[Rfam]
RNA sequence: GCUUUUGGAUAAUCGCGUACGCUUAGGGUGUAUGAGGAAAGUCCAUGCUAGCACUGGCUGAGAUUGCCAGUAGUGAUUGUGCUAGGCGAAAAAAUAAGCCUAGGGAUAUGGUGACAUAUUACGGCGGACAAAAGGGCUAAGUUGGUAACAAUAAGUCCGAGUCGUCCUUAAGGUGCCACAGAGACGAGGUCUAGCAGAAAUGCUGGACAUGGAACGCGGUAAACCCCUCAAGCUAGCAACCCAAAUUUUGGUCGGGGCAUGGAGAUUGGCGGAAAUACAAGGAACGCACUUUCUCUGACUGGGCAACCAGUAGACAGAUGAUUAUCGAAGGAAACGAGCCCUAGUCGUUUCUGGAACAAAACAUGGCUUAUAGAA
Number, nucleotide and partner (000 for none) at each position: 001g000002c000003u000004u375005u374006u373007g371008g326009a325010u324011a323012a322013u321014c320015g000016c034017g033018u032019a031020c030021g029022c000023u000024u000025a000026g000027g000028g000029u021030g020031u019032a018033u017034g016035a000036g000037g000038a000039a369040a368041g367042u000043c366044c365045a364046u363047g362048c236049u235050a234051g233052c232053a071054c070055u069056g068057g067058c066059u000060g000061a000062g000063a000064u000065u000066g058067c057068c056069a055070g054071u053072a000073g000074u000075g000076a000077u231078u230079g229080u000081g227082c103083u102084a101085g100086g099087c098088g000089a000090a000091a000092a000093a000094a000095u000096a000097a000098g087099c086100c085101u084102a083103g082104g122105g120106a119107u118108a117109u116110g115111g000112u000113g000114a000115c110116a109117u108118a107119u106120u105121a000122c104123g226124g225125c000126g167127g166128a165129c164130a000131a000132a000133a000134g158135g157136g156137c155138u000139a000140a000141g152142u151143u150144g000145g000146u000147a000148a000149c000150a143151a142152u141153a000154a000155g137156u136157c135158c134159g000160a000161g000162u000163c000164g129165u128166c127167c126168u000169u000170a000171a000172g000173g224174u223175g220176c219177c218178a000179c000180a000181g000182a000183g000184a000185c000186g000187a000188g000189g208190u207191c206192u205193a204194g203195c202196a201197g000198a000199a000200a000201u196202g195203c194204u193205g192206g191207a190208c189209a000210u000211g000212g000213a000214a000215c000216g000217c000218g177219g176220u175221a000222a000223a174224c173225c124226c123227c081228u000229c079230a078231a077232g052233c051234u050235a049236g048237c000238a000239a000240c256241c255242c254243a000244a000245a000246u000247u000248u000249u000250g000251g000252u000253c000254g242255g241256g240257g000258c000259a000260u297261g296262g295263a294264g293265a292266u000267u000268g000269g000270c000271g000272g000273a000274a000275a000276u000277a000278c000279a000280a000281g000282g000283a000284a000285c000286g000287c000288a000289c000290u000291u000292u265293c264294u263295c262296u261297g260298a311299c310300u309301g308302g307303g000304c000305a000306a000307c302308c301309a300310g299311u298312a000313g000314a000315c000316a000317g000318a000319u000320g014321a013322u012323u011324a010325u009326c008327g000328a000329a000330g352331g351332a350333a349334a348335c347336g346337a345338g000339c000340c000341c000342u000343a000344g000345u337346c336347g335348u334349u333350u332351c331352u330353g000354g000355a000356a000357c000358a000359a000360a000361a000362c047363a046364u045365g044366g043367c041368u040369u039370a000371u007372a000373g006374a005375a004